[Rfam]
Nucleotides: 089
Stems, first nucleotide, its partner, number of pairs: 012037002017032006040083004045079003048074003055068004
Number, partner (000 for none) and nucleotide at each position: 001000a002000a003000c004000u005000g006000a007000u008000a009000a010000a011000g012037g013036c014000a015000a016000a017032c018031u019030u020029u021028u022027c023000g024000a025000a026000a027022g028021a029020a030019a031018a032017g033000g034000a035000c036013g037012c038000a039000a040083a041082g042081c043080c044000a045079u046078g047077a048074g049073c050072c051000u052000a053000a054000c055068c056067a057066c058065u059000u060000g061000a062000a063000a064000a065058a066057g067056u068055g069000u070000a071000u072050g073049g074048u075000a076000g077047u078046c079045a080043g081042g082041c083040u084000g085000c086000c087000g088000g089000g
The record is an 89-nucleotide RNA from Alkalicoccus daliensis, which matches "c-di-GMP-I riboswitch aptamer" in Rfam. The family's consensus secondary structure is taken from published work. Rfam's curators write: GEMM was predicted in a large-scale screen for bacterial structured RNA regulatory elements. Lineage of the source: Bacteria > Bacillati > Bacilli > Bacillaceae > Alkalicoccus.